[Rfam]
The record is a 115-nucleotide sequence from Ancylostoma ceylanicum, which matches "Potassium channel RNA editing signal" in Rfam. Rfam classes the family as a cis-regulatory element. The base pairs follow the family's consensus structure, which is taken from published work. The literature on the family includes a 2004 paper in Nat Struct Mol Biol by Bhalla et al., "Control of human potassium channel inactivation by editing of a small mRNA hairpin".

RNA sequence: AUUGGCUACGGUGAUAUCACACCUCACACAUAUCUGGGAAGGUUAAUCGGUUCGAUUUGUGCGUUGGCUGGUGUACUGACCAUUGCAUUGCCUGUUCCUGUGAGUUUUCGCUAAU
Numbered sequence: 001a002u003u004g005g006c007u008a009c010g011g012u013g014a015u016a017u018c019a020c021a022c023c024u025c026a027c028a029c030a031u032a033u034c035u036g037g038g039a040a041g042g043u044u045a046a047u048c049g050g051u052u053c054g055a056u057u058u059g060u061g062c063g064u065u066g067g068c069u070g071g072u073g074u075a076c077u078g079a080c081c082a083u084u085g086c087a088u089u090g091c092c093u094g095u096u097c098c099u100g101u102g103a104g105u106u107u108u109c110g111c112u113a114a115u
Base pairs, nucleotide, nucleotide: 001115002114004112005111008108010106011105014101015100016099019096021095022094037077038076040074050062051061